The record is an 89-nucleotide RNA from Bucco capensis, which matches "Small nucleolar RNA SNORD60" in Rfam. Its family is annotated with RNA processing and nucleolus in the Gene Ontology. On this family, see Kiss-Laszlo et al., Cell 1996: "Site-specific ribose methylation of preribosomal RNA: a novel function for small nucleolar RNAs".

[Rfam]
RNA sequence: GGCCGGUGAUGAUCUCUUAACCUUUCUGACACCUCGUCUGAGGGCGGCGAGCAGUCGCGGCCCCUGUUGACGAUGCACGGCUGAGGCCC
Numbered sequence: 001g002g003c004c005g006g007u008g009a010u011g012a013u014c015u016c017u018u019a020a021c022c023u024u025u026c027u028g029a030c031a032c033c034u035c036g037u038c039u040g041a042g043g044g045c046g047g048c049g050a051g052c053a054g055u056c057g058c059g060g061c062c063c064c065u066g067u068u069g070a071c072g073a074u075g076c077a078c079g080g081c082u083g084a085g086g087c088c089c
Base pairs, nucleotide, nucleotide: 001088002087003086004085044061045060047058048057049056050055